Alphaproteobacterial sRNA ar7: a 136-nucleotide RNA. The base pairs follow the family's consensus structure. A search with the family's covariance model found it, with a score of 94 bits.

RNA sequence: UAACGGCAAAACGCCGUUGUCCGGCUAAGGCCCGUCCCCCGCCGAUCCGGACUAGUGGCAGCCUAAUCCCCCUCUCCGGGCUGCCACUUUCGUUCUUGAGCCAUCAUGCGUGACCUCCGCAUGAUGGCUUUUUUUG
Numbered sequence: 001u002a003a004c005g006g007c008a009a010a011a012c013g014c015c016g017u018u019g020u021c022c023g024g025c026u027a028a029g030g031c032c033c034g035u036c037c038c039c040c041g042c043c044g045a046u047c048c049g050g051a052c053u054a055g056u057g058g059c060a061g062c063c064u065a066a067u068c069c070c071c072c073u074c075u076c077c078g079g080g081c082u083g084c085c086a087c088u089u090u091c092g093u094u095c096u097u098g099a100g101c102c103a104u105c106a107u108g109c110g111u112g113a114c115c116u117c118c119g120c121a122u123g124a125u126g127g128c129u130u131u132u133u134u135u136g
Base pairs, nucleotide, nucleotide: 020051021050022049023048024047026045029043030042031041054088055087056086057085058084059083060082061081062080063079098130099129100128101127102126103125104124105123106122107121108120109119